[Rfam]
RNA: FMN riboswitch aptamer (RFN element)
RNA sequence: CGUUUCCUUCGGGGUUGGGUGCAAUUCCCUACCGGCGGUAAAGCCCGCGAGCCCGUCAGGGCAGAUCCGGUGAGAAUCCGGAGCCGACAGUACAGUCUGGAUGAGAGAAGGAAAGC
Numbered sequence: 001c002g003u004u005u006c007c008u009u010c011g012g013g014g015u016u017g018g019g020u021g022c023a024a025u026u027c028c029c030u031a032c033c034g035g036c037g038g039u040a041a042a043g044c045c046c047g048c049g050a051g052c053c054c055g056u057c058a059g060g061g062c063a064g065a066u067c068c069g070g071u072g073a074g075a076a077u078c079c080g081g082a083g084c085c086g087a088c089a090g091u092a093c094a095g096u097c098u099g100g101a102u103g104a105g106a107g108a109a110g111g112a113a114a115g116c
Stems, first nucleotide, its partner, number of pairs: 003114008017029003031096002033086002035048004043084002051062003066082005088099003